[Rfam]
RNA sequence: ACAAUGGAGAGUUUGAUCCUGGCUCAGGAUGAACGCUAGCGGCAGGCUUAAUACAUGCAAGUCGAGGGGUAACAGGAGAGCUUGCUCUUGCUGACGACCGGCGCACGGGUGCGUAACGCGUAUGCAACCUACCUGUAACAGGGAGAUAGCCCAGAGAAAUUUGGAUUAAUAUCCCAUAAUAUGAUUUGAUUGCAUGAUCGGGUCAUUAAAGAUUUAUUGGUUACAGAUGGGCAUGCGUCCCAUUAGCUAGUUGGUAAGGUAACGGCUUACCAAGGCGACGAUGGGUAGGGGGCCUGAGAGGGUGAUCCCCCACACUGGUACUGAGACACGGACCAGACUCCUACGGGAGGCAGCAGUAGGGAAUAUUGGUCAAUGGACGAGAGUCUGAACCAGCCAUGCCGCGUGAGCGAAGAAGGCCCUCGGGUCGUAAAGCUCUUUUAUAUGGGAAGAAACCAUUCUAUGCGUAGGAUGCUGACGGUACCAUACGAAUAAGGACCGGCUAACUCCGUGCCAGCAGCCGCGGUAAUACGGAGGGUCCGAGCGUUGUCCGGAAUUAUUG
Numbered sequence: 001a002c003a004a005u006g007g008a009g010a011g012u013u014u015g016a017u018c019c020u021g022g023c024u025c026a027g028g029a030u031g032a033a034c035g036c037u038a039g040c041g042g043c044a045g046g047c048u049u050a051a052u053a054c055a056u057g058c059a060a061g062u063c064g065a066g067g068g069g070u071a072a073c074a075g076g077a078g079a080g081c082u083u084g085c086u087c088u089u090g091c092u093g094a095c096g097a098c099c100g101g102c103g104c105a106c107g108g109g110u111g112c113g114u115a116a117c118g119c120g121u122a123u124g125c126a127a128c129c130u131a132c133c134u135g136u137a138a139c140a141g142g143g144a145g146a147u148a149g150c151c152c153a154g155a156g157a158a159a160u161u162u163g164g165a166u167u168a169a170u171a172u173c174c175c176a177u178a179a180u181a182u183g184a185u186u187u188g189a190u191u192g193c194a195u196g197a198u199c200g201g202g203u204c205a206u207u208a209a210a211g212a213u214u215u216a217u218u219g220g221u222u223a224c225a226g227a228u229g230g231g232c233a234u235g236c237g238u239c240c241c242a243u244u245a246g247c248u249a250g251u252u253g254g255u256a257a258g259g260u261a262a263c264g265g266c267u268u269a270c271c272a273a274g275g276c277g278a279c280g281a282u283g284g285g286u287a288g289g290g291g292g293c294c295u296g297a298g299a300g301g302g303u304g305a306u307c308c309c310c311c312a313c314a315c316u317g318g319u320a321c322u323g324a325g326a327c328a329c330g331g332a333c334c335a336g337a338c339u340c341c342u343a344c345g346g347g348a349g350g351c352a353g354c355a356g357u358a359g360g361g362a363a364u365a366u367u368g369g370u371c372a373a374u375g376g377a378c379g380a381g382a383g384u385c386u387g388a389a390c391c392a393g394c395c396a397u398g399c400c401g402c403g404u405g406a407g408c409g410a411a412g413a414a415g416g417c418c419c420u421c422g423g424g425u426c427g428u429a430a431a432g433c434u435c436u437u438u439u440a441u442a443u444g445g446g447a448a449g450a451a452a453c454c455a456u457u458c459u460a461u462g463c464g465u466a467g468g469a470u471g472c473u474g475a476c477g478g479u480a481c482c483a484u485a486c487g488a489a490u491a492a493g494g495a496c497c498g499g500c501u502a503a504c505u506c507c508g509u510g511c512c513a514g515c516a517g518c519c520g521c522g523g524u525a526a527u528a529c530g531g532a533g534g535g536u537c538c539g540a541g542c543g544u545u546g547u548c549c550g551g552a553a554u555u556a557u558u559g
Base pairs, nucleotide, nucleotide: 009025010024011023012022013021027549028548029547030546032545033544034543035542036541037540039402040401041400042399043398044397045395046394047360052358053357054356056355057354058353061102062101063100066099067098069095070094074092075091076089077088078087079086080085109313110312111311118238119237120236121235122234123233124232125231128230129229133226134225135224136223137222138221139220141175142174143173144172149166151164152163153162154161155160181206182205183204184203185202186201187200189198190197191196211218212217239285240284241283246276247275248274251273252272253271254270255269256268257267258266288310289309290308291307292303293302294301295300315336316335317334318333319332338349339348340347341346366392368391369390370389374387375386376385377384378383405435406434407433408432415426416425417424418423441485442484443483444482445481449476455470456469457468493538494537495536496535497534504533505532506531507530508529514521515520
Shown here is a 559-nucleotide part of an RNA from Sediminitomix flava, a member of the family "Bacterial small subunit ribosomal RNA". Taxonomically the source falls in Sediminitomix (Bacteria, Cytophagia, Cytophagales, Flammeovirgaceae). On this family, see Cannone et al., BMC Bioinformatics 2002: "The comparative RNA web (CRW) site: an online database of comparative sequence and structure information for ribosomal, intron, and other RNAs". The family's consensus secondary structure is taken from published work.